Notes
Rfam assigns this 81-nucleotide RNA sequence from Channa argus to the family "mir-203 microRNA precursor family". Gene Ontology terms of the family: miRNA-mediated post-transcriptional gene silencing and RISC complex. The literature on the family includes a 2005 paper in Genes Dev by Chen et al., "The developmental miRNA profiles of zebrafish as determined by small RNA cloning".
[Rfam]
RNA sequence: UCCUCUUUGGUCCAGUGGUUCUAGACAGUUCAACAGUAGUGAGUCCACAUUUGUGAAAUGUUUAGGACCACUUGAUCAGGG
Numbered sequence: 001u002c003c004u005c006u007u008u009g010g011u012c013c014a015g016u017g018g019u020u021c022u023a024g025a026c027a028g029u030u031c032a033a034c035a036g037u038a039g040u041g042a043g044u045c046c047a048c049a050u051u052u053g054u055g056a057a058a059u060g061u062u063u064a065g066g067a068c069c070a071c072u073u074g075a076u077c078a079g080g081g
Base pairs, nucleotide, nucleotide: 014072015071016070017069018068019067021065022064024062025061026060027059029057030056031055032054